Overview: The family of this 300-nucleotide RNA from Penaeus vannamei is "Nuclear RNase P". On this family, see Frank and Pace, Annu Rev Biochem 1998: "Ribonuclease P: unity and diversity in a tRNA processing ribozyme". The source organism's lineage runs through Eukaryota, Panarthropoda, Arthropoda, Communostraca and Penaeus.

RNA sequence: GGCAGCACAAGCUCACACUAGGGGUCAGAGUGAGGCUGAUGCCACAUUUGCCCCUGGGAAGGUCUGAGAGAAGGGACAUGAGAAGGUCUAGCAGGUCAACCUCUGAGAAGAGGGGCAGAACACCAGACAUCCUUUUGGACCCUUGUUUACUGUGUCAAGGACACCUAUUUAUUAUGUGAGUAAUGUGUAGGUGGAGGUGCGUGAACAUCAUUGGUUGGAAAUGCACUGUGUCCAGCUUAAUUUAGUGUGAUGUGUGAGGUGACAGUUGUCAUAACUCAAUUCAGACUAUUCUGUAUUGCC
Numbered sequence: 001g002g003c004a005g006c007a008c009a010a011g012c013u014c015a016c017a018c019u020a021g022g023g024g025u026c027a028g029a030g031u032g033a034g035g036c037u038g039a040u041g042c043c044a045c046a047u048u049u050g051c052c053c054c055u056g057g058g059a060a061g062g063u064c065u066g067a068g069a070g071a072a073g074g075g076a077c078a079u080g081a082g083a084a085g086g087u088c089u090a091g092c093a094g095g096u097c098a099a100c101c102u103c104u105g106a107g108a109a110g111a112g113g114g115g116c117a118g119a120a121c122a123c124c125a126g127a128c129a130u131c132c133u134u135u136u137g138g139a140c141c142c143u144u145g146u147u148u149a150c151u152g153u154g155u156c157a158a159g160g161a162c163a164c165c166u167a168u169u170u171a172u173u174a175u176g177u178g179a180g181u182a183a184u185g186u187g188u189a190g191g192u193g194g195a196g197g198u199g200c201g202u203g204a205a206c207a208u209c210a211u212u213g214g215u216u217g218g219a220a221a222u223g224c225a226c227u228g229u230g231u232c233c234a235g236c237u238u239a240a241u242u243u244a245g246u247g248u249g250a251u252g253u254g255u256g257a258g259g260u261g262a263c264a265g266u267u268g269u270c271a272u273a274a275c276u277c278a279a280u281u282c283a284g285a286c287u288a289u290u291c292u293g294u295a296u297u298g299c300c
Stems, first nucleotide, its partner, number of pairs: 001300004007294003012258007020055005032045001034043003064284005074233004085097004100113005115229004121223001134214002259272005
Dot-bracket structure: ((((..(((..(((((((.(((((.......(.(((....))).).....)))))........[[[[[.....((((.......((((.....))))..(((((....))))).((((..(............((.............................................................................))........)..))))))))..................)))))))(((((....))))).......]]]]].......)))..))))
By type it is a ribozyme.